[Rfam]
RNA sequence: GAGUUACGAUUACAUGCAAGGUUAAGUGGAAGACACGGAGCCGCAGCGAAAGCGAGUCUGAACAGGGCGAAUUUAGUAUGUGGUCGUAGACCCGAAACCGUGUGAUCUACCCAUGUCCAGGGUGAAGGUCAGGUAACACUGACUGGAGGCCCGAACCCACGUAUGUUGAAAAAUGCGGGGAUGAGGUGUGGGUAGGGGUGAAAUGCCAAUCGAACACGGAGAUAGCUGGUU
Numbered sequence: 001g002a003g004u005u006a007c008g009a010u011u012a013c014a015u016g017c018a019a020g021g022u023u024a025a026g027u028g029g030a031a032g033a034c035a036c037g038g039a040g041c042c043g044c045a046g047c048g049a050a051a052g053c054g055a056g057u058c059u060g061a062a063c064a065g066g067g068c069g070a071a072u073u074u075a076g077u078a079u080g081u082g083g084u085c086g087u088a089g090a091c092c093c094g095a096a097a098c099c100g101u102g103u104g105a106u107c108u109a110c111c112c113a114u115g116u117c118c119a120g121g122g123u124g125a126a127g128g129u130c131a132g133g134u135a136a137c138a139c140u141g142a143c144u145g146g147a148g149g150c151c152c153g154a155a156c157c158c159a160c161g162u163a164u165g166u167u168g169a170a171a172a173a174u175g176c177g178g179g180g181a182u183g184a185g186g187u188g189u190g191g192g193u194a195g196g197g198g199u200g201a202a203a204u205g206c207c208a209a210u211c212g213a214a215c216a217c218g219g220a221g222a223u224a225g226c227u228g229g230u231u
Stems, first nucleotide, its partner, number of pairs: 005088013020042004026036003046053002056068004091229002094226001098219006107195011118183001120152004127144006156180003160177005197207003